[Rfam]
RNA: Enterobacteria greA leader
Organism: Edwardsiella hoshinae
RNA sequence: GCCAUACUAAGGCGCAAUGUGGGUCAAAGUAAACGAUGAUACUUCGCCGACUCUAGGCUAGAAUGGCCGGCAAAAGACAGAAUUGUGCCUGACCGGGAUCUUGUUUCUGGCCAGGAUUAUUU
Numbered sequence: 001g002c003c004a005u006a007c008u009a010a011g012g013c014g015c016a017a018u019g020u021g022g023g024u025c026a027a028a029g030u031a032a033a034c035g036a037u038g039a040u041a042c043u044u045c046g047c048c049g050a051c052u053c054u055a056g057g058c059u060a061g062a063a064u065g066g067c068c069g070g071c072a073a074a075a076g077a078c079a080g081a082a083u084u085g086u087g088c089c090u091g092a093c094c095g096g097g098a099u100c101u102u103g104u105u106u107c108u109g110g111c112c113a114g115g116a117u118u119a120u121u122u
Stems, first nucleotide, its partner, number of pairs: 001040001003038003011034001014030002057071003088115004093110006